[Rfam]
RNA sequence: AUGAGUAACGUAAAAAGAAGUUAUAAUACUUCUCGCCGAAUACGAAAGGGUUGUAAGGAAAGGUUAAACCGCCUUAUGUUAAUGCGGCCUCUAAGGAAUAAAACCAAUGUUUUAUCUGAUGAGUCAUAAACCUAAAGUCCAUAUGGUAUUGGACCAGGAAAAUAAAGUUUAAAUACUACCGUACCCUAAACCGACACAGGUUCGUAGGUAGAGAAUACUAAGGCGUAGAGCUAAAAGUUGUUAAGGAACUCGGCAAGUUCUCCUCAUAAGUUAGACGAUAAGAGGAACCCCCUAGAAUAUAUUAAGUUCCUAUUAAUAUAAAAUUUAGGUAGGUGGCACAUAAUCGGAAGCCCCGACUGUUUACUAAAAACACAAUUCAGAGCAAUGAUUUAAAUCAUAGUAUUCUGGAUGAAAUUUGCCCAAUGCCAUUAACAUAAGAAAGGUAAUAGGAAACUGUUACUGAUCGAAAGUCUGGUUAAUAGCGGUCUUAACUAUGAGGAUCCAAAGGUAGCAUAAUAGAUUGGCCAUUAAAUGUGGUCUGGAAUCAAUAGUGUAACGAUGGCUUCACUGUCUCUACAACUUGCUCAGUGAAAUU
Numbered sequence: 001a002u003g004a005g006u007a008a009c010g011u012a013a014a015a016a017g018a019a020g021u022u023a024u025a026a027u028a029c030u031u032c033u034c035g036c037c038g039a040a041u042a043c044g045a046a047a048g049g050g051u052u053g054u055a056a057g058g059a060a061a062g063g064u065u066a067a068a069c070c071g072c073c074u075u076a077u078g079u080u081a082a083u084g085c086g087g088c089c090u091c092u093a094a095g096g097a098a099u100a101a102a103a104c105c106a107a108u109g110u111u112u113u114a115u116c117u118g119a120u121g122a123g124u125c126a127u128a129a130a131c132c133u134a135a136a137g138u139c140c141a142u143a144u145g146g147u148a149u150u151g152g153a154c155c156a157g158g159a160a161a162a163u164a165a166a167g168u169u170u171a172a173a174u175a176c177u178a179c180c181g182u183a184c185c186c187u188a189a190a191c192c193g194a195c196a197c198a199g200g201u202u203c204g205u206a207g208g209u210a211g212a213g214a215a216u217a218c219u220a221a222g223g224c225g226u227a228g229a230g231c232u233a234a235a236a237g238u239u240g241u242u243a244a245g246g247a248a249c250u251c252g253g254c255a256a257g258u259u260c261u262c263c264u265c266a267u268a269a270g271u272u273a274g275a276c277g278a279u280a281a282g283a284g285g286a287a288c289c290c291c292c293u294a295g296a297a298u299a300u301a302u303u304a305a306g307u308u309c310c311u312a313u314u315a316a317u318a319u320a321a322a323a324u325u326u327a328g329g330u331a332g333g334u335g336g337c338a339c340a341u342a343a344u345c346g347g348a349a350g351c352c353c354c355g356a357c358u359g360u361u362u363a364c365u366a367a368a369a370a371c372a373c374a375a376u377u378c379a380g381a382g383c384a385a386u387g388a389u390u391u392a393a394a395u396c397a398u399a400g401u402a403u404u405c406u407g408g409a410u411g412a413a414a415u416u417u418g419c420c421c422a423a424u425g426c427c428a429u430u431a432a433c434a435u436a437a438g439a440a441a442g443g444u445a446a447u448a449g450g451a452a453a454c455u456g457u458u459a460c461u462g463a464u465c466g467a468a469a470g471u472c473u474g475g476u477u478a479a480u481a482g483c484g485g486u487c488u489u490a491a492c493u494a495u496g497a498g499g500a501u502c503c504a505a506a507g508g509u510a511g512c513a514u515a516a517u518a519g520a521u522u523g524g525c526c527a528u529u530a531a532a533u534g535u536g537g538u539c540u541g542g543a544a545u546c547a548a549u550a551g552u553g554u555a556a557c558g559a560u561g562g563c564u565u566c567a568c569u570g571u572c573u574c575u576a577c578a579a580c581u582u583g584c585u586c587a588g589u590g591a592a593a594u595u
Stems, first nucleotide, its partner, number of pairs: 001595001008589002016033006034225004042205004048185002053077006062070002085181003090122002095117003100113001102111003126142002130138001145177006152170002155167001191200002207219004228586003235582007244573003261286005270276001287334003292329001335339001347566006354558002358372003375410008383400001386397004414552003418483002423480002425476004432471002438465002442461008484502006503507001513540001523539006
The record is a 595-nucleotide part of an RNA, which matches "Bacterial large subunit ribosomal RNA" in Rfam. Rfam links the family to the GO terms structural constituent of ribosome and ribosome.